The record is a 225-nucleotide RNA from Solanum tuberosum, which matches "MIR8007 microRNA precursor family" in Rfam. Gene Ontology terms of the family: miRNA-mediated post-transcriptional gene silencing and RISC complex. It scores 208 bits against the family's covariance model. Pairs were carried over by alignment from the consensus structure, which was predicted with RNAalifold.
RNA sequence: AUGUGGCACUUUUCGAAUUACGAGAUUCAAACAAGUCUAUCUUUGACCAUAAAUUUUGCAUACAUCUUUUAAAUAUUUUGAAUUGUCAAUUAUUGUGACUUAUAGUACUUUUUACGUAGUUUAUAAAUAUAUAAAUUUCAUUUCAAAAAAUUUGAAAAUUCCAUGAGUAAAUCGUCGGUCAAACUUAAACUGUUUGACUCUCGAAAAAUGAAAAGUGCCACAUAA
Numbered sequence: 001a002u003g004u005g006g007c008a009c010u011u012u013u014c015g016a017a018u019u020a021c022g023a024g025a026u027u028c029a030a031a032c033a034a035g036u037c038u039a040u041c042u043u044u045g046a047c048c049a050u051a052a053a054u055u056u057u058g059c060a061u062a063c064a065u066c067u068u069u070u071a072a073a074u075a076u077u078u079u080g081a082a083u084u085g086u087c088a089a090u091u092a093u094u095g096u097g098a099c100u101u102a103u104a105g106u107a108c109u110u111u112u113u114a115c116g117u118a119g120u121u122u123a124u125a126a127a128u129a130u131a132u133a134a135a136u137u138u139c140a141u142u143u144c145a146a147a148a149a150a151u152u153u154g155a156a157a158a159u160u161c162c163a164u165g166a167g168u169a170a171a172u173c174g175u176c177g178g179u180c181a182a183a184c185u186u187a188a189a190c191u192g193u194u195u196g197a198c199u200c201u202c203g204a205a206a207a208a209u210g211a212a213a214a215g216u217g218c219c220a221c222a223u224a225a
Stems, first nucleotide, its partner, number of pairs: 001223015018206002021203005027197007035190002038187002042183007053172004057167001059165003064159002067156003076148007084140002094133004100126006107120003